[Rfam]
RNA sequence: UGACCUACCUUACAAGUCGUUAAACUGUAAAAGGCAAUAUGAGAAGCGACCUCGUAAAAAGCGUA
Numbered sequence: 001u002g003a004c005c006u007a008c009c010u011u012a013c014a015a016g017u018c019g020u021u022a023a024a025c026u027g028u029a030a031a032a033g034g035c036a037a038u039a040u041g042a043g044a045a046g047c048g049a050c051c052u053c054g055u056a057a058a059a060a061g062c063g064u065a
Stems, first nucleotide, its partner, number of pairs: 001019004011029004040054004

Description:
Rfam assigns this 65-nucleotide RNA sequence from Clostridium celatum to the family "GP20-b RNA". It scores 47 bits against the family's covariance model. The family's RNA type in Rfam is cis-regulatory element. The family's consensus secondary structure is taken from published work. NCBI's taxonomy places the organism under Bacteria, Bacillati, Bacillota, Clostridia, Clostridium celatum.